6C RNA: a 72-nucleotide sequence from Thermobispora bispora. The family's RNA type in Rfam is cis-regulatory element.

RNA sequence: GGAGCCGGCUCUACCCCCCGGGGCCGGACCGCUCGGCGACCCCCGCUCUCCCCCCGGCGGGGGUCGCUCUUU
Numbered sequence: 001g002g003a004g005c006c007g008g009c010u011c012u013a014c015c016c017c018c019c020g021g022g023g024c025c026g027g028a029c030c031g032c033u034c035g036g037c038g039a040c041c042c043c044c045g046c047u048c049u050c051c052c053c054c055c056g057g058c059g060g061g062g063g064u065c066g067c068u069c070u071u072u
Stems, first nucleotide, its partner, number of pairs: 001033001002030001005027007035068013
Taxonomically the source falls in Thermobispora bispora (Bacteria, Bacillati, Actinomycetota, Actinomycetes).